Rfam assigns this 37-nucleotide sequence from Ursus americanus to the family "Renin stability regulatory element (REN-SRE)".
NCBI's taxonomy places the organism under Eukaryota, Metazoa, Euteleostomi, Dipnotetrapodomorpha, Ursus.
[Rfam]
RNA sequence: CUGCUUUGAGAACAAGCAGAAUAAAGACUUCAUGUUC
Numbered sequence: 001c002u003g004c005u006u007u008g009a010g011a012a013c014a015a016g017c018a019g020a021a022u023a024a025a026g027a028c029u030u031c032a033u034g035u036u037c
Base pairs, nucleotide, nucleotide: 001019002018005016006015007014